[Rfam]
RNA sequence: CAACUGCUAAACUGCUUGGGGGAUGGUUUGGCUUGGGGGCCGAAGAAGGACGUGCCAAGCUGCGAUAAGCCUCGGGGAGGCGCAUGGAGCCCUAGAUCCGAGGAUUUCCGAAUAGGACUUCCCGUCGUAAGACACUCCGUAAGGAGAGGGUACCCAGGGAAUUGAAACAUCUUAGUACCUGGAGGAAAAGAAAUCAAUCGAGAUACCGUUAGUAAAGGCGAUCGAAACCGGUAUAAGGCAAACCGAAUGCCCCAUAGUAAUAUCGGGUAUAUGUGGAGUUAGGACCUCCUUCAAUACCUACUCAAUGAAUCCUAAUCUGAACGAAAGCAGAGCCAGAGAAGGUGAUAGCCCUGUUGGAGUAAGUUGAGAGGUUACGAGAGGAGAGUUCCAGAGUAUCGUGCGUCGUUUUUCGCGCGAGAAUAUAGGUGGCACUAACAUCUAACCUUAAAUACAGCCCAAGUCCGAUAGCGAACAAGUACCGUGAGGGAAAACUGAAAAGCAACCCGAAAGGGUAGUGCAAAGAGCCUGAAACCAAGCAGUGAUAAACUUACAAGGCACCAAAGGGAUGAUAUCGUUAACCACGAUGGACCAGUGUUUUGU
Numbered sequence: 001c002a003a004c005u006g007c008u009a010a011a012c013u014g015c016u017u018g019g020g021g022g023a024u025g026g027u028u029u030g031g032c033u034u035g036g037g038g039g040c041c042g043a044a045g046a047a048g049g050a051c052g053u054g055c056c057a058a059g060c061u062g063c064g065a066u067a068a069g070c071c072u073c074g075g076g077g078a079g080g081c082g083c084a085u086g087g088a089g090c091c092c093u094a095g096a097u098c099c100g101a102g103g104a105u106u107u108c109c110g111a112a113u114a115g116g117a118c119u120u121c122c123c124g125u126c127g128u129a130a131g132a133c134a135c136u137c138c139g140u141a142a143g144g145a146g147a148g149g150g151u152a153c154c155c156a157g158g159g160a161a162u163u164g165a166a167a168c169a170u171c172u173u174a175g176u177a178c179c180u181g182g183a184g185g186a187a188a189a190g191a192a193a194u195c196a197a198u199c200g201a202g203a204u205a206c207c208g209u210u211a212g213u214a215a216a217g218g219c220g221a222u223c224g225a226a227a228c229c230g231g232u233a234u235a236a237g238g239c240a241a242a243c244c245g246a247a248u249g250c251c252c253c254a255u256a257g258u259a260a261u262a263u264c265g266g267g268u269a270u271a272u273g274u275g276g277a278g279u280u281a282g283g284a285c286c287u288c289c290u291u292c293a294a295u296a297c298c299u300a301c302u303c304a305a306u307g308a309a310u311c312c313u314a315a316u317c318u319g320a321a322c323g324a325a326a327g328c329a330g331a332g333c334c335a336g337a338g339a340a341g342g343u344g345a346u347a348g349c350c351c352u353g354u355u356g357g358a359g360u361a362a363g364u365u366g367a368g369a370g371g372u373u374a375c376g377a378g379a380g381g382a383g384a385g386u387u388c389c390a391g392a393g394u395a396u397c398g399u400g401c402g403u404c405g406u407u408u409u410u411c412g413c414g415c416g417a418g419a420a421u422a423u424a425g426g427u428g429g430c431a432c433u434a435a436c437a438u439c440u441a442a443c444c445u446u447a448a449a450u451a452c453a454g455c456c457c458a459a460g461u462c463c464g465a466u467a468g469c470g471a472a473c474a475a476g477u478a479c480c481g482u483g484a485g486g487g488a489a490a491a492c493u494g495a496a497a498a499g500c501a502a503c504c505c506g507a508a509a510g511g512g513u514a515g516u517g518c519a520a521a522g523a524g525c526c527u528g529a530a531a532c533c534a535a536g537c538a539g540u541g542a543u544a545a546a547c548u549u550a551c552a553a554g555g556c557a558c559c560a561a562a563g564g565g566a567u568g569a570u571a572u573c574g575u576u577a578a579c580c581a582c583g584a585u586g587g588a589c590c591a592g593u594g595u596u597u598u599g600u
Stems, first nucleotide, its partner, number of pairs: 011540009025526001026492002030463002032460006039452001048109003051064003070103006079091003115122002135146004153184001154182005164171002194201002205232004216222001235446004243276003254263003286383004296372002310358003316331004334338001340352003396417007424440005479486002550600009563590002571585005